[Rfam]
RNA sequence: CAUAGAUAAAGACAAAUCAGUUGAAAGAUUGAGACGUAAAGCCACGGGUCUAAGGCAUUUUAAUGCUAUGAUAGCCGGGCCGCCUAA
Numbered sequence: 001c002a003u004a005g006a007u008a009a010a011g012a013c014a015a016a017u018c019a020g021u022u023g024a025a026a027g028a029u030u031g032a033g034a035c036g037u038a039a040a041g042c043c044a045c046g047g048g049u050c051u052a053a054g055g056c057a058u059u060u061u062a063a064u065g066c067u068a069u070g071a072u073a074g075c076c077g078g079g080c081c082g083c084c085u086a087a
Stems, first nucleotide, its partner, number of pairs: 012037002017032006041080003045077003048072003055066004
This 87-nucleotide sequence from Clostridium sp. Maddingley MBC34-26 belongs to the Rfam family "c-di-GMP-I riboswitch aptamer". Gene Ontology term of the family: cyclic-di-GMP binding. Pairs were carried over by alignment from the consensus structure, which is taken from published work. GEMM was predicted in a large-scale screen for bacterial structured RNA regulatory elements. Rfam 15.1 lists 5,092 matches to the family in 1,772 species.